Glycine riboswitch aptamer: a 104-nucleotide RNA sequence from Hydrogenophaga borbori. From the family's description: This family represents the bacterial glycine riboswitch. Glycine riboswitches usually consist of two metabolite-binding aptamers domains with similar structures in tandem. The aptamers cooperatively bind glycine to regulate the expression of downstream genes.
RNA sequence: GCGAUCCCCCCUGGAGAGAGGCCCCACCCGAUGGGGUCCACCGAAGGAGCAAGCGCGGCAUCGCCCGCGUGAAUCUCUCAGGUAAAGCGGACAGUGGGGCAGCG
Number, nucleotide and partner (000 for none) at each position: 001g000002c000003g000004a000005u000006c099007c098008c097009c096010c000011c094012u093013g092014g000015a000016g000017a000018g000019a000020g038021g037022c036023c035024c034025c033026a000027c000028c000029c000030g000031a000032u000033g025034g024035g023036g022037u021038c020039c000040a083041c082042c081043g079044a078045a000046g000047g077048a076049g075050c000051a000052a000053g070054c069055g068056c067057g066058g065059c000060a000061u000062c000063g000064c000065c058066c057067g056068c055069g054070u053071g000072a000073a000074u000075c049076u048077c047078u044079c043080a000081g042082g041083u040084a000085a000086a000087g000088c000089g000090g000091a000092c013093a012094g011095u000096g009097g008098g007099g006100c000101a000102g000103c000104g000

Notes:
The match comes from Rfam's covariance-model search (61 bits).